A member of the RNA family "Y RNA" from Prolemur simus, 111 nucleotides long.
[Rfam]
RNA sequence: GAGUACCAACGGUAGUGAGUUAUCUCACCUGAUUGUUUACAAUCAGUUACAGAUUGAACUCCUCAUUCUACUACUUUCCCCCUUCUCACUACUGCACUUGACUAGUCUUAA
Numbered sequence: 001g002a003g004u005a006c007c008a009a010c011g012g013u014a015g016u017g018a019g020u021u022a023u024c025u026c027a028c029c030u031g032a033u034u035g036u037u038u039a040c041a042a043u044c045a046g047u048u049a050c051a052g053a054u055u056g057a058a059c060u061c062c063u064c065a066u067u068c069u070a071c072u073a074c075u076u077u078c079c080c081c082c083u084u085c086u087c088a089c090u091a092c093u094g095c096a097c098u099u100g101a102c103u104a105g106u107c108u109u110a111a
Base pairs, nucleotide, nucleotide: 002103003102004101006100008099009098012095013094014090015089016088017087018086019085042072045069046068
The family's consensus secondary structure is taken from published work. On this family, see Teunissen et al., Nucleic Acids Res 2000: "Conserved features of Y RNAs: a comparison of experimentally derived secondary structures". Rfam's curators write: Y RNAs are components of the Ro ribonucleoprotein particle (Ro RNP), in association with Ro60 and La proteins.